Rfam assigns this 205-nucleotide RNA from Pseudonocardia thermophila to the family "Actinobacteria sRNA Ms_IGR-5". The organism belongs to Pseudonocardia, within Bacteria. By type it is a small RNA.
[Rfam]
RNA sequence: ACACAGGAGAGGAGGUGGUCCAGCGUUGAAUAGCUGCAGGACUUGUGAGGUGGCUGUCCGCUAGCACCACGGGACAAGUCUCCGACGGUCGUGGAAGCCGGAUGUGGUGCCGGCGAAUUCCAGGCAGUCACCCGUGAUCCCCGGGUCCGAGCCCGUCCAGCUCGGUGUGCGCACCCCCGAGUGCGGCCCGGGGAUCACGUAUUUC
Numbered sequence: 001a002c003a004c005a006g007g008a009g010a011g012g013a014g015g016u017g018g019u020c021c022a023g024c025g026u027u028g029a030a031u032a033g034c035u036g037c038a039g040g041a042c043u044u045g046u047g048a049g050g051u052g053g054c055u056g057u058c059c060g061c062u063a064g065c066a067c068c069a070c071g072g073g074a075c076a077a078g079u080c081u082c083c084g085a086c087g088g089u090c091g092u093g094g095a096a097g098c099c100g101g102a103u104g105u106g107g108u109g110c111c112g113g114c115g116a117a118u119u120c121c122a123g124g125c126a127g128u129c130a131c132c133c134g135u136g137a138u139c140c141c142c143g144g145g146u147c148c149g150a151g152c153c154c155g156u157c158c159a160g161c162u163c164g165g166u167g168u169g170c171g172c173a174c175c176c177c178c179g180a181g182u183g184c185g186g187c188c189c190g191g192g193g194a195u196c197a198c199g200u201a202u203u204u205c
Stems, first nucleotide, its partner, number of pairs: 014058006059115004064110002067107004133199013147165006